Shown here is a 124-nucleotide RNA sequence, a member of the family "RNA Staph. aureus A".
Its family is annotated with sRNA-mediated gene silencing and mRNA binding in the Gene Ontology.
Rfam describes the family as follows. Represses the translation of the transcriptional regulator MgrA by binding to its mRNA, enhances biofilm formation and decreases bacterial virulence.
[Rfam]
RNA sequence: AAGUAGUGGUAGUAGUAGUAGUAGCAGUAUUAUCACUACUACUACUACUACUACUACAAGUAGUAGUAGUAGUGAUGAUACUACUACUACUACUACUACUACUACUACAAGUAGUAGUAGUAGU
Numbered sequence: 001a002a003g004u005a006g007u008g009g010u011a012g013u014a015g016u017a018g019u020a021g022u023a024g025c026a027g028u029a030u031u032a033u034c035a036c037u038a039c040u041a042c043u044a045c046u047a048c049u050a051c052u053a054c055u056a057c058a059a060g061u062a063g064u065a066g067u068a069g070u071a072g073u074g075a076u077g078a079u080a081c082u083a084c085u086a087c088u089a090c091u092a093c094u095a096c097u098a099c100u101a102c103u104a105c106u107a108c109a110a111g112u113a114g115u116a117g118u119a120g121u122a123g124u
Stems, first nucleotide, its partner, number of pairs: 002052007016044009065088010093123013